Rfam assigns this 73-nucleotide RNA sequence from Chamaesiphon minutus to the family "Cyanobacterial functional RNA 1".

RNA sequence: ACGGAAGCUGAUGUUUCCGUUCACUCCUCACACCACAUCCCGCCUGAGACACUUAACCGUGUCUUGGGCGGUU
Numbered sequence: 001a002c003g004g005a006a007g008c009u010g011a012u013g014u015u016u017c018c019g020u021u022c023a024c025u026c027c028u029c030a031c032a033c034c035a036c037a038u039c040c041c042g043c044c045u046g047a048g049a050c051a052c053u054u055a056a057c058c059g060u061g062u063c064u065u066g067g068g069c070g071g072u073u
Stems, first nucleotide, its partner, number of pairs: 001020008041070012